[Rfam]
RNA sequence: GUUGGCUACGCGUAUUCUUGGGUAAUUAACACUUGAUGAUGUUGUUAUUGCUUGAGAAUACACGUAGCUGCU
Numbered sequence: 001g002u003u004g005g006c007u008a009c010g011c012g013u014a015u016u017c018u019u020g021g022g023u024a025a026u027u028a029a030c031a032c033u034u035g036a037u038g039a040u041g042u043u044g045u046u047a048u049u050g051c052u053u054g055a056g057a058a059u060a061c062a063c064g065u066a067g068c069u070g071c072u
Base pairs, nucleotide, nucleotide: 001072003070004069005068008065009064010063012061013060014059015058016057017056018055019054020053021052022051023050025049027047028046029045030044031043032041